[Rfam]
RNA sequence: GUAAGCCGUGAUUGUCCAAACGCAAUUCUUGUGCCACUUAUACAAUCAAGAACUGUGCUGGACAUCAAUGCUUUG
Numbered sequence: 001g002u003a004a005g006c007c008g009u010g011a012u013u014g015u016c017c018a019a020a021c022g023c024a025a026u027u028c029u030u031g032u033g034c035c036a037c038u039u040a041u042a043c044a045a046u047c048a049a050g051a052a053c054u055g056u057g058c059u060g061g062a063c064a065u066c067a068a069u070g071c072u073u074u075g
Base pairs, nucleotide, nucleotide: 003073004072005071006070009067010066011065012064014063015062016061017060018059021057022056023055024054026052027051028050029049030048031047
mir-219 microRNA precursor family: a 75-nucleotide RNA sequence from Medioppia subpectinata. Pairs were carried over by alignment from the consensus structure, which was predicted with RNAalifold. The match comes from Rfam's covariance-model search (63 bits). The source organism's lineage runs through Eukaryota, Metazoa, Arachnida, Acariformes and Medioppia.